Record summary: Bradyrhizobiaceae sRNA BjrC80: a 157-nucleotide sequence from Rhodopseudomonas palustris. A reference for the family is Madhugiri et al. (2012), "Small RNAs of the Bradyrhizobium/Rhodopseudomonas lineage and their analysis", RNA Biol. Rfam classes the family as a small RNA. Pairs were carried over by alignment from the consensus structure. NCBI's taxonomy places the organism under Bacteria, Alphaproteobacteria, Hyphomicrobiales, Rhodopseudomonas, Rhodopseudomonas palustris.
RNA sequence: GAAUGGAGUGCGUCGUCGGCAUGUCGCCCCCGCCGAUGGCGCGCUCCGGGGGACGGGCUUAGGCCCGUCCCCACGGAUACCUUCCGGUGGAGAAUGCCCCCCUCCGUUGGAAGGCGCGGCGGGCGGUGAGGUUCCCCCAGCCUCACCGCCCGUUUCU
Numbered sequence: 001g002a003a004u005g006g007a008g009u010g011c012g013u014c015g016u017c018g019g020c021a022u023g024u025c026g027c028c029c030c031c032g033c034c035g036a037u038g039g040c041g042c043g044c045u046c047c048g049g050g051g052g053a054c055g056g057g058c059u060u061a062g063g064c065c066c067g068u069c070c071c072c073a074c075g076g077a078u079a080c081c082u083u084c085c086g087g088u089g090g091a092g093a094a095u096g097c098c099c100c101c102c103u104c105c106g107u108u109g110g111a112a113g114g115c116g117c118g119g120c121g122g123g124c125g126g127u128g129a130g131g132u133u134c135c136c137c138c139a140g141c142c143u144c145a146c147c148g149c150c151c152g153u154u155u156c157u
Base pairs, nucleotide, nucleotide: 009043010042011041012040013039014038015037017035018034019033049072050071051070052069053068054067055066056065057064058063074119078116080114081113084110085109086108087107089105090104091103092102121151122150123149124148125147126146127145128144129143130142131141132140